[Rfam]
RNA sequence: AUCUGAAUGGGCGAUGGGGUUCGCCUUCAUAAUGAAAACCGCAGAGUUCUGAAAGCUGCUGAUAACUCCAGAAAUAAA
Numbered sequence: 001a002u003c004u005g006a007a008u009g010g011g012c013g014a015u016g017g018g019g020u021u022c023g024c025c026u027u028c029a030u031a032a033u034g035a036a037a038a039c040c041g042c043a044g045a046g047u048u049c050u051g052a053a054a055g056c057u058g059c060u061g062a063u064a065a066c067u068c069c070a071g072a073a074a075u076a077a078a
Stems, first nucleotide, its partner, number of pairs: 010025004016069006041059004
RNA: Fluoride riboswitch aptamer (crcB RNA motif)
Organism: Sphaerochaeta globosa